Notes: ZMP/ZTP riboswitch aptamer (pfl RNA motif): an 83-nucleotide sequence from Lachnospiraceae bacterium KM106-2.
RNA sequence: AGUAGUUCAUACGACUGGCGGAAAGAGGGAACUAACCCAUAGGGAGUAUGAAUGGUAUUAUGUCGACCGCCUGGGCAGCCUAA
Numbered sequence: 001a002g003u004a005g006u007u008c009a010u011a012c013g014a015c016u017g018g019c020g021g022a023a024a025g026a027g028g029g030a031a032c033u034a035a036c037c038c039a040u041a042g043g044g045a046g047u048a049u050g051a052a053u054g055g056u057a058u059u060a061u062g063u064c065g066a067c068c069g070c071c072u073g074g075g076c077a078g079c080c081u082a083a
Stems, first nucleotide, its partner, number of pairs: 003055001005053008015043002017071005027038003061077004
Dot-bracket structure: ..(.((((((((..(([[[[[.....(((......)))...))..)))))))).).....((((..]]]]]..))))......
The source organism's lineage runs through Bacteria, Bacillati, Bacillota, Lachnospirales and Lachnospiraceae.